[Rfam]
RNA: Bacillus sRNA ncr1575
RNA sequence: UAUUAUUUACGGAAAGGAAUGAUGGGUGGACGAUGGAUAACUAACCUAUUUUUUACAUUUGAAAUCGUAUAUUUCAGAUUAUAAAACAUAGGAUUAGUCUGCCCAUUUUUCUAUAAACGUUUGAGCUAUAUGAUUAUAUGGCUUCAUUUAGGUACGUUAAAAUGCGACUAAUCCUUCCAUGUCUAUUGGGAGGAUUUUUUU
Dot-bracket structure: ...............((((...((((..(((..........(((.((((.(((...(((((((((.....)))))))))....))).)).)).))))))..))))..)))).......(.....(((((((....)))))))......)....................((((((((((.......)))))))))).....
Numbered sequence: 001u002a003u004u005a006u007u008u009a010c011g012g013a014a015a016g017g018a019a020u021g022a023u024g025g026g027u028g029g030a031c032g033a034u035g036g037a038u039a040a041c042u043a044a045c046c047u048a049u050u051u052u053u054u055a056c057a058u059u060u061g062a063a064a065u066c067g068u069a070u071a072u073u074u075c076a077g078a079u080u081a082u083a084a085a086a087c088a089u090a091g092g093a094u095u096a097g098u099c100u101g102c103c104c105a106u107u108u109u110u111c112u113a114u115a116a117a118c119g120u121u122u123g124a125g126c127u128a129u130a131u132g133a134u135u136a137u138a139u140g141g142c143u144u145c146a147u148u149u150a151g152g153u154a155c156g157u158u159a160a161a162a163u164g165c166g167a168c169u170a171a172u173c174c175u176u177c178c179a180u181g182u183c184u185a186u187u188g189g190g191a192g193g194a195u196u197u198u199u200u201u
Stems, first nucleotide, its partner, number of pairs: 016111004023105004029099003042096003046092002048089002051086003057079009119149001125142007170196010